This 287-nucleotide RNA from Falco tinnunculus belongs to the Rfam family "Metazoan signal recognition particle RNA". Rfam 15.1 lists 383,523 matches to the family in 1,221 species. The family's RNA type in Rfam is non-coding RNA gene. Rfam's curators write: The signal recognition particle (SRP) is a universally conserved ribonucleoprotein. A search with the family's covariance model found it, with a score of 178 bits. For this family Rfam cites "Kinship in the SRP RNA family" (Rosenblad et al., RNA Biol, 2009).
RNA sequence: GCCGGGCACGGUGGCUUGUGCCUGUAAUCCAAGCGCCUGGGGUGGCUGAGGCUGGUGGAUGGCUUGAGCCUGGGAGCUCAGCGUUGGAGCAAACUGUGCCGAGCGGGUGUCAGCGCUAAGGCUGGCAUCGAUAUGGUGGUCCUAGGGGAGCCGGGGGCCACCAGGUCGCCUGAGGAGGGGUGAACCGGCCCAGGUUGGAGACGGAGCAGGUCGAAGCUCCCGUGCCGGUCAGUAGCGGGAUGGCACCUGUAGCACAGCCUGGGUGAGAGGGCGGGACCCAGUUUCCU
Numbered sequence: 001g002c003c004g005g006g007c008a009c010g011g012u013g014g015c016u017u018g019u020g021c022c023u024g025u026a027a028u029c030c031a032a033g034c035g036c037c038u039g040g041g042g043u044g045g046c047u048g049a050g051g052c053u054g055g056u057g058g059a060u061g062g063c064u065u066g067a068g069c070c071u072g073g074g075a076g077c078u079c080a081g082c083g084u085u086g087g088a089g090c091a092a093a094c095u096g097u098g099c100c101g102a103g104c105g106g107g108u109g110u111c112a113g114c115g116c117u118a119a120g121g122c123u124g125g126c127a128u129c130g131a132u133a134u135g136g137u138g139g140u141c142c143u144a145g146g147g148g149a150g151c152c153g154g155g156g157g158c159c160a161c162c163a164g165g166u167c168g169c170c171u172g173a174g175g176a177g178g179g180g181u182g183a184a185c186c187g188g189c190c191c192a193g194g195u196u197g198g199a200g201a202c203g204g205a206g207c208a209g210g211u212c213g214a215a216g217c218u219c220c221c222g223u224g225c226c227g228g229u230c231a232g233u234a235g236c237g238g239g240a241u242g243g244c245a246c247c248u249g250u251a252g253c254a255c256a257g258c259c260u261g262g263g264u265g266a267g268a269g270g271g272c273g274g275g276a277c278c279c280a281g282u283u284u285c286c287u
Stems, first nucleotide, its partner, number of pairs: 001046003004023008029042002048285008060274001062272004068264007079257001081255001083253003103250008111239001114237005120230009129168004134163010145152002169175002177220005186213005195204003